[Rfam]
RNA sequence: GCACUGGAAGUGAGAAUUGGAGGAAAACAAACUGAUUGCUGGUUGUUGUUUGCAACAGUGUGGCAAACAAUGUUCAGCUUGUUUUUCUCCAAUAUCUCACCUUCAGGUU
Dot-bracket structure: ...(((((..((((.((((((.((((((((.((((......................................)))).)))))))).))))))..))))..)))))...

The family of this 109-nucleotide sequence from Oryza sativa is "MIR2275 microRNA precursor family". NCBI's taxonomy places the organism under Eukaryota, Streptophytina, Mesangiospermae, commelinids, Oryza. Gene Ontology terms of the family: RISC complex and miRNA-mediated post-transcriptional gene silencing.